[Rfam]
Nucleotides: 108
Stems, first nucleotide, its partner, number of pairs: 006096005011058004016052001017031005038051004064089004071082003
Number, partner (000 for none) and nucleotide at each position: 001000a002000c003000a004000a005000a006096u007095g008094a009093c010092u011058a012057g013056a014055g015000g016052u017031g018030c019029u020028c021027a022000u023000a024000u025000c026000a027021u028020g029019a030018g031017c032000u033000g034000a035000g036000a037000u038051u039050a040049a041048c042000a043000u044000a045000a046000u047000g048041g049040u050039u051038a052016g053000a054000a055014c056013u057012c058011u059000u060000a061000g062000a063000a064089c065088c066087u067086g068000a069000u070000a071082c072081a073080g074000u075000u076000u077000a078000u079000a080073c081072u082071g083000g084000c085000g086067u087066a088065g089064g090000a091000a092010a093009g094008u095007c096006a097000c098000u099000g100000a101000a102000a103000a104000u105000c106000g107000a108000u
This 108-nucleotide sequence from Abyssicoccus albus belongs to the Rfam family "TPP riboswitch aptamer (THI element)". Rfam describes the family as follows. Vitamin B(1) in its active form thiamin pyrophosphate (TPP) is an essential coenzyme that is synthesised by coupling of pyrimidine and thiazole moieties in bacteria. It scores 81 bits against the family's covariance model. NCBI's taxonomy places the organism under Bacteria, Bacillati, Bacillota, Caryophanales, Abyssicoccus.